[Rfam]
RNA sequence: CCGCCCGUCGCUCCUACCGAUUGGAUGAUCCGCCGAGUUUUUCGGAUUGUGGCUAUGGUUCCCUUGUGGAGUUCAGCGCUGCGAGAAGUUAUGCAAGGCUAAUUAUCUAGAGGAAGGAGAAGUCGUAACAAGGUAUCCGUAGGUGAACCUGCGGAUGGAUCAUUA
Numbered sequence: 001c002c003g004c005c006c007g008u009c010g011c012u013c014c015u016a017c018c019g020a021u022u023g024g025a026u027g028a029u030c031c032g033c034c035g036a037g038u039u040u041u042u043c044g045g046a047u048u049g050u051g052g053c054u055a056u057g058g059u060u061c062c063c064u065u066g067u068g069g070a071g072u073u074c075a076g077c078g079c080u081g082c083g084a085g086a087a088g089u090u091a092u093g094c095a096a097g098g099c100u101a102a103u104u105a106u107c108u109a110g111a112g113g114a115a116g117g118a119g120a121a122g123u124c125g126u127a128a129c130a131a132g133g134u135a136u137c138c139g140u141a142g143g144u145g146a147a148c149c150u151g152c153g154g155a156u157g158g159a160u161c162a163u164u165a
Stems, first nucleotide, its partner, number of pairs: 001132001003129001006125002009122001011119005017113002021109001023108007032099003037094002040091001043088001047084007056075002059071004134157010

About this RNA:
Rfam assigns this 165-nucleotide part of an RNA from Kipferlia bialata to the family "Eukaryotic small subunit ribosomal RNA". It scores 1514 bits against the family's covariance model. The source organism's lineage runs through Eukaryota, Metamonada, Fornicata, Carpediemonas-like organisms and Kipferlia. Rfam links the family to the GO terms structural constituent of ribosome and ribosome. Pairs were carried over by alignment from the consensus structure, which is taken from published work. The literature on the family includes a 2001 paper in Science by Yusupov et al., "Crystal structure of the ribosome at 5.5 A resolution".